Shown here is an 84-nucleotide RNA from Populus tomentosa, a member of the family "Small nucleolar RNA SNORD34".
Nucleotides: 084
Stems, first nucleotide, its partner, number of pairs: 001084002004081004
Number, partner (000 for none) and nucleotide at each position: 001084g002083g003000a004081g005080g006079c007078c008000u009000g010000u011000g012000a013000u014000g015000a016000u017000u018000u019000a020000a021000a022000a023000u024000u025000u026000g027000c028000c029000u030000a031000c032000a033000u034000u035000g036000u037000c038000u039000g040000a041000u042000c043000a044000u045000c046000c047000a048000a049000c050000u051000g052000a053000u054000g055000a056000c057000a058000g059000a060000g061000a062000c063000a064000u065000g066000a067000a068000u069000u070000a071000g072000u073000u074000c075000u076000g077000a078007g079006g080005c081004c082000u083002u084001c
Its family is annotated with nucleolus and RNA processing in the Gene Ontology. Pairs were carried over by alignment from the consensus structure, which was predicted with PFOLD. From the family's description: snoRNA U34 is found in intron 5 of the ribosomal protein L13a gene in humans. The literature on the family includes a 2003 paper in Nucleic Acids Res by Chen et al., "The high diversity of snoRNAs in plants: identification and comparative study of 120 snoRNA genes from Oryza sativa". Lineage of the source: Eukaryota > Embryophyta > Spermatophyta > Gunneridae > Populus.